[Rfam]
RNA sequence: GUGGUGAUCAAAGUGGAGGCCCUCUCUGAUCCUUGACCUGAAAGUGCUUCCAUUUUGUGUGCCAC
Numbered sequence: 001g002u003g004g005u006g007a008u009c010a011a012a013g014u015g016g017a018g019g020c021c022c023u024c025u026c027u028g029a030u031c032c033u034u035g036a037c038c039u040g041a042a043a044g045u046g047c048u049u050c051c052a053u054u055u056u057g058u059g060u061g062c063c064a065c
Stems, first nucleotide, its partner, number of pairs: 004062003009057012022044002025041002

The family of this 65-nucleotide RNA from Nannospalax galili is "mir-290 microRNA precursor family". Rfam links the family to the GO terms RISC complex and miRNA-mediated post-transcriptional gene silencing. For this family Rfam cites "Embryonic stem cell-specific MicroRNAs" (Houbaviy et al., Dev Cell, 2003). Its Rfam clan is "mir-290 clan". The family's consensus secondary structure was predicted with RNAalifold. The source organism's lineage runs through Eukaryota, Eumetazoa, Boreoeutheria, Glires and Nannospalax.